[Rfam]
RNA sequence: GCAUGGCUGAAUUCUGCCUCAGCUGGCCUGUGCUGGAGACAGUCAGACACCAUGCAAAAGCCAAGCCUCAUUUCUGCCUAGUGAUUGGACAGAUGCUCCAAACCAGCGCUGUUCAGCUACGCAGAAAUGAGUACACAG
Number, nucleotide and partner (000 for none) at each position: 001g055002c054003a053004u052005g051006g050007c000008u000009g000010a000011a000012u000013u000014c042015u041016g040017c000018c038019u037020c000021a000022g000023c000024u000025g000026g000027c000028c000029u000030g000031u000032g000033c000034u000035g000036g000037a019038g018039a000040c016041a015042g014043u000044c000045a000046g000047a000048c000049a000050c006051c005052a004053u003054g002055c001056a000057a000058a000059a000060g000061c000062c000063a000064a000065g000066c000067c131068u130069c129070a128071u127072u126073u125074c124075u123076g122077c000078c000079u000080a000081g120082u119083g118084a000085u116086u115087g114088g113089a112090c111091a110092g109093a000094u000095g000096c000097u000098c000099c000100a000101a000102a000103c000104c000105a000106g000107c000108g000109c092110u091111g090112u089113u088114c087115a086116g085117c000118u083119a082120c081121g000122c076123a075124g074125a073126a072127a071128u070129g069130a068131g067132u000133a000134c000135a000136c000137a000138g000

The family of this 138-nucleotide sequence from Oryzias latipes is "Small nucleolar RNA SNORA15". Lineage of the source: Eukaryota > Craniata > Clupeocephala > Adrianichthyidae > Oryzias. Rfam classes the family as an H/ACA-box small nucleolar RNA. It scores 55 bits against the family's covariance model. Rfam's curators write: ACA15 is a member of the H/ACA class of snoRNA that guide the sites of modification of uridines to pseudouridines. On this family, see Huttenhofer et al., EMBO J 2001: "RNomics: an experimental approach that identifies 201 candidates for novel, small, non-messenger RNAs in mouse".